[Rfam]
The record is a 66-nucleotide RNA from Pteropus vampyrus, which matches "MAT2A 3'UTR stem loop E" in Rfam. NCBI's taxonomy places the organism under Eukaryota, Metazoa, Euteleostomi, Tetrapoda, Pteropus. It is annotated as a cis-regulatory element. Pairs were carried over by alignment from the consensus structure, which is taken from published work. The literature on the family includes a 2011 paper in Genome Res by Parker et al., "New families of human regulatory RNA structures identified by comparative analysis of vertebrate genomes".
RNA sequence: CCAGCAUUCCCAGGUAUCCCAAGCUAUCCUACAGAGAAACCCUGGUUGGACUCUCAGGGGGUCUGG
Numbered sequence: 001c002c003a004g005c006a007u008u009c010c011c012a013g014g015u016a017u018c019c020c021a022a023g024c025u026a027u028c029c030u031a032c033a034g035a036g037a038a039a040c041c042c043u044g045g046u047u048g049g050a051c052u053c054u055c056a057g058g059g060g061g062u063c064u065g066g
Base pairs, nucleotide, nucleotide: 001066002065003064004063006062007061008060009059010058011057014055019045020044021043023041025039027031